A member of the RNA family "mir-1 microRNA precursor family" from Denticeps clupeoides, 78 nucleotides long. Rfam 15.1 lists 4,474 matches to the family in 965 species. On this family, see Ambros, Cell 2001: "microRNAs: tiny regulators with great potential". About the family: This family represents the microRNA (miRNA) mir-1 family. miRNAs are transcribed as ~70nt precursors (modelled here) and subsequently processed by the Dicer enzyme to give a ~22nt product. Pairs were carried over by alignment from the consensus structure, which was predicted with RNAalifold. The match comes from Rfam's covariance-model search (49 bits).
RNA sequence: ACCAAGCAUACAUACUUCUUUACAUUCCAUAACUGUCAUAUGUCCAUAUGGGCACAUAAAGAAGUAUGUACACCAAGU
Number, nucleotide and partner (000 for none) at each position: 001a000002c000003c000004a000005a000006g000007c000008a000009u070010a069011c068012a067013u066014a065015c064016u063017u062018c061019u060020u059021u058022a057023c000024a000025u000026u000027c051028c050029a049030u048031a047032a000033c000034u000035g000036u000037c000038a000039u000040a000041u000042g000043u000044c000045c000046a000047u031048a030049u029050g028051g027052g000053c000054a000055c000056a000057u022058a021059a020060a019061g018062a017063a016064g015065u014066a013067u012068g011069u010070a009071c000072a000073c000074c000075a000076a000077g000078u000